A member of the RNA family "mir-8904 microRNA precursor family" from Nyctereutes procyonoides, 97 nucleotides long. Taxonomically the source falls in Nyctereutes (Eukaryota, Bilateria, Deuterostomia, Dipnotetrapodomorpha). The family's consensus secondary structure was predicted with RNAalifold.

RNA sequence: UCUCAGGCUCCCUGGGACACUAACAGACACCUGCGCCCCGGGGAGAGUGCGCUGAGCUCCCUGAAGGGCUGCAGCAUGGCUGGACCUGGGAGCAGCU
Numbered sequence: 001u002c003u004c005a006g007g008c009u010c011c012c013u014g015g016g017a018c019a020c021u022a023a024c025a026g027a028c029a030c031c032u033g034c035g036c037c038c039c040g041g042g043g044a045g046a047g048u049g050c051g052c053u054g055a056g057c058u059c060c061c062u063g064a065a066g067g068g069c070u071g072c073a074g075c076a077u078g079g080c081u082g083g084a085c086c087u088g089g090g091a092g093c094a095g096c097u
Stems, first nucleotide, its partner, number of pairs: 007093006014086002018082002020079003031074004035069004040062006048054002